[Rfam]
RNA sequence: AUACUCUGGUUUCUUAUCAAAUUGUAUAAAUCUUUUGCCCCUUAGUAAAGAUUUUCAUGGUGAGGAACAGGCAUGAGUGUUAAGGGAU
Numbered sequence: 001a002u003a004c005u006c007u008g009g010u011u012u013c014u015u016a017u018c019a020a021a022u023u024g025u026a027u028a029a030a031u032c033u034u035u036u037g038c039c040c041c042u043u044a045g046u047a048a049a050g051a052u053u054u055u056c057a058u059g060g061u062g063a064g065g066a067a068c069a070g071g072c073a074u075g076a077g078u079g080u081u082a083a084g085g086g087a088u
Base pairs, nucleotide, nucleotide: 003078004077005076006075009068010067011066012065013064014063015062016061017060018059019058028054029053030052031051032050033049034048035047
The record is an 88-nucleotide RNA from Tichodroma muraria, which matches "U5 spliceosomal RNA" in Rfam.
Pairs were carried over by alignment from the consensus structure, which is taken from published work.
Its family is annotated with spliceosomal tri-snRNP complex assembly and U5 snRNP in the Gene Ontology.
About the family: U5 RNA is a component of both types of known spliceosome. The precise function of this molecule is unknown, though it is known that the 5' loop is required for splice site selection and p220 binding, and that both the 3' stem-loop and the Sm site are important for Sm protein binding and cap methylation.
Rfam classes the family as a spliceosomal small nuclear RNA.